[Rfam]
RNA: NiCo (Nickel/Cobalt) riboswitch aptamer
RNA sequence: ACAGUACAAACUGAACAGGCGAUAGCGAUCUUAGCUAUAGGGCCGGGUUGCCGGGGGCGACAACGGAUGACUUUCGUGCAUCUGUGGGACAGUA
Numbered sequence: 001a002c003a004g005u006a007c008a009a010a011c012u013g014a015a016c017a018g019g020c021g022a023u024a025g026c027g028a029u030c031u032u033a034g035c036u037a038u039a040g041g042g043c044c045g046g047g048u049u050g051c052c053g054g055g056g057g058c059g060a061c062a063a064c065g066g067a068u069g070a071c072u073u074u075c076g077u078g079c080a081u082c083u084g085u086g087g088g089a090c091a092g093u094a
Stems, first nucleotide, its partner, number of pairs: 010093004016088001018044003022038005047061005063085006